[Rfam]
RNA sequence: GUGAAGAAGAGUCUCCGAGGCAAAAGACCUAAACAAUUGUACGGUUUUCUGCCCGAUGGGAUGACCCGGAAACAGGUUAUCCUCCCGAAUCAGUCAGAAGGCUGACGAAUUGGAAAGGAGUCAGACUACACGAAU
Numbered sequence: 001g002u003g004a005a006g007a008a009g010a011g012u013c014u015c016c017g018a019g020g021c022a023a024a025a026g027a028c029c030u031a032a033a034c035a036a037u038u039g040u041a042c043g044g045u046u047u048u049c050u051g052c053c054c055g056a057u058g059g060g061a062u063g064a065c066c067c068g069g070a071a072a073c074a075g076g077u078u079a080u081c082c083u084c085c086c087g088a089a090u091c092a093g094u095c096a097g098a099a100g101g102c103u104g105a106c107g108a109a110u111u112g113g114a115a116a117g118g119a120g121u122c123a124g125a126c127u128a129c130a131c132g133a134a135u
Stems, first nucleotide, its partner, number of pairs: 003129001006126001011122001013120004019053004024048006033040002058083009068073001084113002

The family of this 135-nucleotide RNA from Maribellus comscasis is "Molybdenum/Tungsten riboswitch aptamer (Moco RNA motif)". It scores 58 bits against the family's covariance model. The family's consensus secondary structure is taken from published work. NCBI's taxonomy places the organism under Bacteria, Bacteroidota, Marinilabiliales, Prolixibacteraceae, Maribellus.